[Rfam]
RNA sequence: UCAAUGGACGACUAGGGUUCCGGCCUGCAACGCAGGUGACUGGUCCGAGAGUUGUCGACCUCCGGCAGGGGGUUACACGGCGGGAUAAAAGCCCGGGAGAG
Numbered sequence: 001u002c003a004a005u006g007g008a009c010g011a012c013u014a015g016g017g018u019u020c021c022g023g024c025c026u027g028c029a030a031c032g033c034a035g036g037u038g039a040c041u042g043g044u045c046c047g048a049g050a051g052u053u054g055u056c057g058a059c060c061u062c063c064g065g066c067a068g069g070g071g072g073u074u075a076c077a078c079g080g081c082g083g084g085a086u087a088a089a090a091g092c093c094c095g096g097g098a099g100a101g
Base pairs, nucleotide, nucleotide: 007056008055009054010053011052012051015046016045020043021042022040023037024036025035026034027033028032057074058073059072060071061070062069063068076096078099082094083093084092
Dot-bracket structure: ......((((((..((...(((((((((...))))))..).)).))....))))))(((((((....))))))).(.[...(((.......))).)..]..